[Rfam]
RNA sequence: GACCCGAUGGCAGUGUGGUUAGCUGGUUGUGCCCGCGGGAUUUAUGACCCAACCACUAUCCCCACUGCCAUCAGGCG
Numbered sequence: 001g002a003c004c005c006g007a008u009g010g011c012a013g014u015g016u017g018g019u020u021a022g023c024u025g026g027u028u029g030u031g032c033c034c035g036c037g038g039g040a041u042u043u044a045u046g047a048c049c050c051a052a053c054c055a056c057u058a059u060c061c062c063c064a065c066u067g068c069c070a071u072c073a074g075g076c077g
Stems, first nucleotide, its partner, number of pairs: 003075002006072001009069002012066004017061002020058003024055006031048001
A member of the RNA family "mir-34 microRNA precursor family" from Darwinula stevensoni, 77 nucleotides long. A search with the family's covariance model found it, with a score of 56 bits. NCBI's taxonomy places the organism under Eukaryota, Oligostraca, Podocopida, Darwinulocopina, Darwinula. Rfam describes the family as follows. Human mir-34a was discovered computationally and later experimentally verified. The mature sequence is excised from the 5' arm of the hairpin. Rfam links the family to the GO terms RISC complex and miRNA-mediated post-transcriptional gene silencing. Pairs were carried over by alignment from the consensus structure, which was predicted with RNAalifold. The family has 113 seed sequences and 2,256 matches in Rfam 15.1. A reference for the family is Lim et al. (2003), "Vertebrate microRNA genes", Science.